[Rfam]
RNA sequence: AUGCAGGAUCAGUUAUAGACCAGCUGUGGCGGUGCUGGUUUGUCGUUCCCCCUGCGCAAAUAAACCUGUUUCCUACUAUCCCUGUGUGUUUGCAUCCCACAGCUCACAGGGACGCUUGGUCUCAGACAA
Numbered sequence: 001a002u003g004c005a006g007g008a009u010c011a012g013u014u015a016u017a018g019a020c021c022a023g024c025u026g027u028g029g030c031g032g033u034g035c036u037g038g039u040u041u042g043u044c045g046u047u048c049c050c051c052c053u054g055c056g057c058a059a060a061u062a063a064a065c066c067u068g069u070u071u072c073c074u075a076c077u078a079u080c081c082c083u084g085u086g087u088g089u090u091u092g093c094a095u096c097c098c099a100c101a102g103c104u105c106a107c108a109g110g111g112a113c114g115c116u117u118g119g120u121c122u123c124a125g126a127c128a129a
Stems, first nucleotide, its partner, number of pairs: 003055005015043010081110004086105001088103002

Small nucleolar RNA SNORA63: a 129-nucleotide sequence from Onychostoma macrolepis. About the family: E3 belongs to the H/ACA class of snoRNAs and is involved in the processing of eukaryotic pre-rRNA and has regions of complementarity to 18S rRNA. E3 is encoded in introns in the gene for protein synthesis initiation factor 4AII. A reference for the family is Mishra and Eliceiri (1997), "Three small nucleolar RNAs that are involved in ribosomal RNA precursor processing", Proc Natl Acad Sci U S A. The base pairs follow the family's consensus structure, which was predicted with PFOLD. It is annotated as an H/ACA-box small nucleolar RNA.